[Rfam]
RNA sequence: UGCCGAUCAGACUGAUCUCGUUCUCCCGGAAAUGUUAACUAAAAAUCAUUUCGGCGAUGAGAUCAGCCUGUCGAUUCUAUGGGC
Numbered sequence: 001u002g003c004c005g006a007u008c009a010g011a012c013u014g015a016u017c018u019c020g021u022u023c024u025c026c027c028g029g030a031a032a033u034g035u036u037a038a039c040u041a042a043a044a045a046u047c048a049u050u051u052c053g054g055c056g057a058u059g060a061g062a063u064c065a066g067c068c069u070g071u072c073g074a075u076u077c078u079a080u081g082g083g084c
Stems, first nucleotide, its partner, number of pairs: 002084003008070003012066011029052006
Dot-bracket structure: .(((...(((.(((((((((((......((((((............))))))...))))))))))).)))...........)))
The family of this 84-nucleotide RNA sequence from Dendroctonus ponderosae is "mir-6012 microRNA precursor family". The family has 2 seed sequences and 60 matches in Rfam 15.1. The family's consensus secondary structure was predicted with RNAalifold.